[Rfam]
This 235-nucleotide RNA from Dictyoglomus thermophilum belongs to the Rfam family "Dictyoglomi-1 RNA".
NCBI's taxonomy places the organism under Bacteria, Dictyoglomota, Dictyoglomia, Dictyoglomaceae, Dictyoglomus thermophilum.
The family's consensus secondary structure is taken from published work.

RNA sequence: UGCUACAGGCGUCAAGGGGUCCGAAAGGUACUCCUGAUGUACCUUGGCACUGAGUAAAGUCUUGGGUACCUAGGGAAAGGUGAAGGAGCUAGACUCCUUACCAAGUACUUAGGGGGUGGAGAGUAGUAGGAGUGUUGGAGAAGCCCGGUGCUCCUAUGAAAUCUGGAAAAUCCUGAGGCUGAAAGGUGAGAAGGUACAAGGAGGCUUCCAAGUAGGGUCUGUUGAGCCUGUGGCA
Numbered sequence: 001u002g003c004u005a006c007a008g009g010c011g012u013c014a015a016g017g018g019g020u021c022c023g024a025a026a027g028g029u030a031c032u033c034c035u036g037a038u039g040u041a042c043c044u045u046g047g048c049a050c051u052g053a054g055u056a057a058a059g060u061c062u063u064g065g066g067u068a069c070c071u072a073g074g075g076a077a078a079g080g081u082g083a084a085g086g087a088g089c090u091a092g093a094c095u096c097c098u099u100a101c102c103a104a105g106u107a108c109u110u111a112g113g114g115g116g117u118g119g120a121g122a123g124u125a126g127u128a129g130g131a132g133u134g135u136u137g138g139a140g141a142a143g144c145c146c147g148g149u150g151c152u153c154c155u156a157u158g159a160a161a162u163c164u165g166g167a168a169a170a171u172c173c174u175g176a177g178g179c180u181g182a183a184a185g186g187u188g189a190g191a192a193g194g195u196a197c198a199a200g201g202a203g204g205c206u207u208c209c210a211a212g213u214a215g216g217g218u219c220u221g222u223u224g225a226g227c228c229u230g231u232g233g234c235a
Base pairs, nucleotide, nucleotide: 001235002234003233004232005231006230007229008228009227010226012225013224014223015222017220018219021216022215027209028208031204032203034201035200038198039197040196041195042194043193044192048188049187050186051185058180059179060178061177062176063175064174065173066172070112071111072110073109074108079102080101081100083099084098085097086096087095117165118164119163120162126157127156128155129154130153131152132151133150134149135148136147137146138145